This 110-nucleotide RNA belongs to the Rfam family "TPP riboswitch aptamer (THI element)". Its family is annotated with thiamine pyrophosphate binding in the Gene Ontology. Rfam's curators write: Vitamin B(1) in its active form thiamin pyrophosphate (TPP) is an essential coenzyme that is synthesised by coupling of pyrimidine and thiazole moieties in bacteria. The match comes from Rfam's covariance-model search (71 bits).

RNA sequence: AUUCAUCACUAGGGGAUCCCUUGAUAAGGGCUGAGAAUAGAGUAGUUACUUUUAAACCCUCAAAACCUGAACAGGCUAGUACCUGCGUAGGAAAGUGGCGCAUUCUCUAU
Numbered sequence: 001a002u003u004c005a006u007c008a009c010u011a012g013g014g015g016a017u018c019c020c021u022u023g024a025u026a027a028g029g030g031c032u033g034a035g036a037a038u039a040g041a042g043u044a045g046u047u048a049c050u051u052u053u054a055a056a057c058c059c060u061c062a063a064a065a066c067c068u069g070a071a072c073a074g075g076c077u078a079g080u081a082c083c084u085g086c087g088u089a090g091g092a093a094a095g096u097g098g099c100g101c102a103u104u105c106u107c108u109a110u
Stems, first nucleotide, its partner, number of pairs: 006098005011060004018030004039052004066091004072085004